[Rfam]
RNA: MIR535 microRNA precursor family
RNA sequence: AUGAUUGGUUGACGACGAGAGAGAGCACGCUUGUUAGCAUUCAUGCUGUGGUCAUGGUUGUGUACGAGUGUGCUUUCUACCGCCGUCAUACAAUA
Numbered sequence: 001a002u003g004a005u006u007g008g009u010u011g012a013c014g015a016c017g018a019g020a021g022a023g024a025g026c027a028c029g030c031u032u033g034u035u036a037g038c039a040u041u042c043a044u045g046c047u048g049u050g051g052u053c054a055u056g057g058u059u060g061u062g063u064a065c066g067a068g069u070g071u072g073c074u075u076u077c078u079a080c081c082g083c084c085g086u087c088a089u090a091c092a093a094u095a
Base pairs, nucleotide, nucleotide: 010088011087012086013085014084016082017081020078021077023075025073026072027071028070029069030068031067032066033065034064